[Rfam]
Nucleotides: 090
Stems, first nucleotide, its partner, number of pairs: 001090005
Number, partner (000 for none) and nucleotide at each position: 001090a002089g003088c004087u005086c006000u007000a008000u009000g010000a011000u012000u013000a014000u015000u016000c017000a018000g019000c020000c021000u022000a023000a024000u025000a026000u027000g028000g029000g030000c031000a032000a033000u034000a035000u036000a037000c038000g039000c040000u041000a042000u043000u044000c045000c046000g047000a048000u049000u050000u051000g052000c053000a054000g055000a056000a057000a058000u059000g060000a061000g062000c063000a064000g065000a066000a067000a068000u069000u070000u071000u072000g073000a074000g075000a076000g077000a078000a079000a080000g081000a082000a083000u084000g085000a086005g087004a088003g089002c090001u